[Rfam]
RNA: Group II catalytic intron D1-D4-3
RNA sequence: GUCGUCGCGAGGCGGGGUCUGGAGGAAGUCCAAUCCAAAGCUGCGGGGCGAUGAACAAAAACCGGAUAUGAGGCGUGAUGCAUCCGGGGCGAGCGGGCACGUGACCGCAAAGCCCUCCAUCUGCGGUUGGGGUGCAUUUUGUAAAUUCGGCGUCUAUGCAGCGAAGGUAACGUGU
Numbered sequence: 001g002u003c004g005u006c007g008c009g010a011g012g013c014g015g016g017g018u019c020u021g022g023a024g025g026a027a028g029u030c031c032a033a034u035c036c037a038a039a040g041c042u043g044c045g046g047g048g049c050g051a052u053g054a055a056c057a058a059a060a061a062c063c064g065g066a067u068a069u070g071a072g073g074c075g076u077g078a079u080g081c082a083u084c085c086g087g088g089g090c091g092a093g094c095g096g097g098c099a100c101g102u103g104a105c106c107g108c109a110a111a112g113c114c115c116u117c118c119a120u121c122u123g124c125g126g127u128u129g130g131g132g133u134g135c136a137u138u139u140u141g142u143a144a145a146u147u148c149g150g151c152g153u154c155u156a157u158g159c160a161g162c163g164a165a166g167g168u169a170a171c172g173u174g175u
Base pairs, nucleotide, nucleotide: 002015003014004013005012006011028175029174031172036167040162041161042160043159044158045157046155047154048153049152050151062150063149064148065147066146067145073142074141075140077138079136080135081134082133083132084131087115088114089113090112093108094107095106096105